[Rfam]
RNA sequence: ACAGCACAAACUGAGCAGACAGCGGAUUUUCCAGUAGGAUUGGUGGAAAUUAUAGAGUCAGGCCGUUUUCAAAAAAUGGCGGCAGAUUAGGGGGAAUGACAUCUGUGGGACAGUA
Numbered sequence: 001a002c003a004g005c006a007c008a009a010a011c012u013g014a015g016c017a018g019a020c021a022g023c024g025g026a027u028u029u030u031c032c033a034g035u036a037g038g039a040u041u042g043g044u045g046g047a048a049a050u051u052a053u054a055g056a057g058u059c060a061g062g063c064c065g066u067u068u069u070c071a072a073a074a075a076a077u078g079g080c081g082g083c084a085g086a087u088u089a090g091g092g093g094g095a096a097u098g099a100c101a102u103c104u105g106u107g108g109g110a111c112a113g114u115a
Stems, first nucleotide, its partner, number of pairs: 010114004016109001018059003022053001024051002027048004062080007082106006
RNA: NiCo (Nickel/Cobalt) riboswitch aptamer